A member of the RNA family "Flavo-1 RNA" from Flavobacterium cyanobacteriorum, 79 nucleotides long. It is annotated as a small RNA. The match comes from Rfam's covariance-model search (64 bits). The family has 201 seed sequences and 7,497 matches in Rfam 15.1.
[Rfam]
RNA sequence: UUAUAGCCCUGAUGGGAGCGGCAUCCUCCCCGCCGCCCGCUUUCGCGGCGGGGAGAUACAGCGUACAGCAGGAAAUAGC
Numbered sequence: 001u002u003a004u005a006g007c008c009c010u011g012a013u014g015g016g017a018g019c020g021g022c023a024u025c026c027u028c029c030c031c032g033c034c035g036c037c038c039g040c041u042u043u044c045g046c047g048g049c050g051g052g053g054a055g056a057u058a059c060a061g062c063g064u065a066c067a068g069c070a071g072g073a074a075a076u077a078g079c
Stems, first nucleotide, its partner, number of pairs: 009071003013067002018062002023057003028053008
Dot-bracket structure: ........(((.((...((...(((..((((((((..........)))))))).)))...))...)).)))........